[Rfam]
RNA: Methylobacterium-1 RNA
RNA sequence: CAAGUUGAAAUGGUGUCUAAAUAUUCUCAACAGGACGAGGGAAGAAUUAACCCUCACAGGAUGCAGAAUUUAUCCUCACAGACCUGUAUCUUGACCGUAGUU
Numbered sequence: 001c002a003a004g005u006u007g008a009a010a011u012g013g014u015g016u017c018u019a020a021a022u023a024u025u026c027u028c029a030a031c032a033g034g035a036c037g038a039g040g041g042a043a044g045a046a047u048u049a050a051c052c053c054u055c056a057c058a059g060g061a062u063g064c065a066g067a068a069u070u071u072a073u074c075c076u077c078a079c080a081g082a083c084c085u086g087u088a089u090c091u092u093g094a095c096c097g098u099a100g101u102u
Stems, first nucleotide, its partner, number of pairs: 004031005010024003037055005057093010069082003